[Rfam]
RNA sequence: ACUCCUUCUGCAGCUCUGGUGGAAAAUGGAGAAGACUUUUCCUUUCCUCCAUCUCCCCCAGGGCCUGGUGGAGU
Dot-bracket structure: (((((.((....(((((((.(((..(((((((((.......)))..)))))).))).)))))))..)).)))))
RNA: mir-4660 microRNA precursor family